A member of the RNA family "Small Cajal body specific RNA 8" from Varanus komodoensis, 131 nucleotides long. The organism belongs to Varanus, within Eukaryota. Rfam classes the family as a small Cajal body RNA. A search with the family's covariance model found it, with a score of 116 bits. On this family, see Darzacq et al., EMBO J 2002: "Cajal body-specific small nuclear RNAs: a novel class of 2'-O-methylation and pseudouridylation guide RNAs". About the family: scaRNAs are a specific class of small nuclear RNAs which localise to the Cajal bodies and guide the modification of RNA polymerase II transcribed spliceosomal RNAs U1, U2, U4, U5 and U12. U92 belong to the H/ACA box class of guide RNAs as it has the predicted hairpin-hinge-hairpin-tail structure, conserved H/ACA-box motifs and is found associated with GAR1.
[Rfam]
RNA sequence: UGGGACGCUGAUACUCAAACAGAGAAAAGCAUUACUCUAGUUGCCACAAGUGCUCCCUAUAAUAAAAUUGCCUUUUGAUGACCGGGAUGAAUUGAGGGAAAUCAUAACGGACAGAUACGAGGCAUACAAGU
Numbered sequence: 001u002g003g004g005a006c007g008c009u010g011a012u013a014c015u016c017a018a019a020c021a022g023a024g025a026a027a028a029g030c031a032u033u034a035c036u037c038u039a040g041u042u043g044c045c046a047c048a049a050g051u052g053c054u055c056c057c058u059a060u061a062a063u064a065a066a067a068u069u070g071c072c073u074u075u076u077g078a079u080g081a082c083c084g085g086g087a088u089g090a091a092u093u094g095a096g097g098g099a100a101a102u103c104a105u106a107a108c109g110g111a112c113a114g115a116u117a118c119g120a121g122g123c124a125u126a127c128a129a130g131u
Base pairs, nucleotide, nucleotide: 002057003056004055005054016043017042018041022037023036024035069124070123071122072121073120074119082110083109084108087105088104089103090102